[Rfam]
RNA sequence: GCUGACAAAGGCAAACCCGUCGAAAGGCGGGGACGCAAAGCCACCGGUCUAAGGGAUCCGAGAUCCACGACAGCGGGGUUGCCGGCC
Numbered sequence: 001g002c003u004g005a006c007a008a009a010g011g012c013a014a015a016c017c018c019g020u021c022g023a024a025a026g027g028c029g030g031g032g033a034c035g036c037a038a039a040g041c042c043a044c045c046g047g048u049c050u051a052a053g054g055g056a057u058c059c060g061a062g063a064u065c066c067a068c069g070a071c072a073g074c075g076g077g078g079u080u081g082c083c084g085g086c087c
Base pairs, nucleotide, nucleotide: 001087003084004083011036012035016031017030018029019028020027021026034073039080040079041078042077044076045075046074047071048070049069

Overview
This 87-nucleotide sequence from Wenzhouxiangella sp. XN24 belongs to the Rfam family "c-di-GMP-I-GGC riboswitch aptamer". The literature on the family includes a 2017 paper in Proc Natl Acad Sci U S A by Weinberg et al., "Bioinformatic analysis of riboswitch structures uncovers variant classes with altered ligand specificity". A search with the family's covariance model found it, with a score of 74 bits.